The record is a 114-nucleotide RNA from Mycolicibacterium sediminis, which matches "SAM (S-adenosyl methionine) riboswitch aptamer" in Rfam. On this family, see Weinberg et al., RNA 2008: "The aptamer core of SAM-IV riboswitches mimics the ligand-binding site of SAM-I riboswitches". NCBI's taxonomy places the organism under Bacteria, Actinomycetota, Actinomycetes, Mycobacterium, Mycobacterium (subgen. Mycolicibacterium). It scores 60 bits against the family's covariance model.
RNA sequence: GCUCUAGAGCGGACGGCUGUACGGGUAUCUGGCCCGCCGUCCCGGCAACCGCGCAGCCACUGCACGGUGCCCCAGAGGAAGAGCGGGGACGCCGCGAGCGUUCAAGCAGUGGAC
Numbered sequence: 001g002c003u004c005u006a007g008a009g010c011g012g013a014c015g016g017c018u019g020u021a022c023g024g025g026u027a028u029c030u031g032g033c034c035c036g037c038c039g040u041c042c043c044g045g046c047a048a049c050c051g052c053g054c055a056g057c058c059a060c061u062g063c064a065c066g067g068u069g070c071c072c073c074a075g076a077g078g079a080a081g082a083g084c085g086g087g088g089a090c091g092c093c094g095c096g097a098g099c100g101u102u103c104a105a106g107c108a109g110u111g112g113a114c
Stems, first nucleotide, its partner, number of pairs: 001084004009043001012041006024034002044071003049067003053063002087103006